[Rfam]
RNA: TPP riboswitch aptamer (THI element)
RNA sequence: CAAAAUUCCUCGGGGUGCUUUCUUCGGAAGGCUGAGAUUAUACCCGUAAAACCUGAACAGGGUAAUGCCUGCGAAGGGAAGGCUGCAAAGCAUUUC
Numbered sequence: 001c002a003a004a005a006u007u008c009c010u011c012g013g014g015g016u017g018c019u020u021u022c023u024u025c026g027g028a029a030g031g032c033u034g035a036g037a038u039u040a041u042a043c044c045c046g047u048a049a050a051a052c053c054u055g056a057a058c059a060g061g062g063u064a065a066u067g068c069c070u071g072c073g074a075a076g077g078g079a080a081g082g083c084u085g086c087a088a089a090g091c092a093u094u095u096c
Stems, first nucleotide, its partner, number of pairs: 008082003011046004016040001017032005052077003058071004